[Rfam]
Nucleotides: 079
Stems, first nucleotide, its partner, number of pairs: 002049001005046004021036006
Number, partner (000 for none) and nucleotide at each position: 001000c002049g003000a004000u005046c006045c007044g008043a009000g010000a011000g012000g013000c014000g015000c016000u017000g018000c019000a020000a021036c022035g023034g024033a025032c026031a027000a028000c029000c030000c031026u032025g033024u034023c035022c036021g037000c038000c039000a040000c041000g042000c043008u044007c045006g046005g047000u048000g049002c050000g051000g052000u053000u054000u055000g056000u057000u058000g059000a060000c061000g062000u063000a064000a065000g066000g067000g068000c069000g070000c071000c072000u073000c074000c075000u076000g077000a078000g079000a